[Rfam]
RNA sequence: CUUGGACGUUGGGGGUGGGAUUCACUGCGUGAAUCUCUGAGAGAGUCCCCGGAACCUGAUCAGGAUAAGACCUGCGUAGGAAAACGGACCUGUAAAAUU
Number, nucleotide and partner (000 for none) at each position: 001c000002u000003u000004g000005g000006a000007c086008g085009u084010u083011g050012g049013g048014g047015g000016u044017g037018g036019g035020a034021u033022u032023c031024a030025c000026u000027g000028c000029g000030u024031g023032a022033a021034u020035c019036u018037c017038u000039g000040a000041g000042a000043g000044a016045g000046u000047c014048c013049c012050c011051g000052g000053a000054a000055c080056c079057u078058g077059a000060u000061c074062a073063g072064g071065a000066u000067a000068a000069g000070a000071c064072c063073u062074g061075c000076g000077u058078a057079g056080g055081a000082a000083a010084a009085c008086g007087g000088a000089c000090c000091u000092g000093u000094a000095a000096a000097a000098u000099u000

Shown here is a 99-nucleotide sequence from Leptospira interrogans, a member of the family "TPP riboswitch aptamer (THI element)". The source organism's lineage runs through Bacteria, Spirochaetota, Leptospiraceae, Leptospira interrogans and Leptospira interrogans serovar Lai. It scores 57 bits against the family's covariance model.